[Rfam]
RNA sequence: AAAAUUACCCAAACACAGGCACUGACUUGCGUGUAAUGCAGUAAGUGCUACUUGUUGGGUAGUUUUG
Numbered sequence: 001a002a003a004a005u006u007a008c009c010c011a012a013a014c015a016c017a018g019g020c021a022c023u024g025a026c027u028u029g030c031g032u033g034u035a036a037u038g039c040a041g042u043a044a045g046u047g048c049u050a051c052u053u054g055u056u057g058g059g060u061a062g063u064u065u066u067g
Stems, first nucleotide, its partner, number of pairs: 004063007013055003018049006025042003
miR-430 microRNA precursor family: a 67-nucleotide RNA sequence from Gymnodraco acuticeps.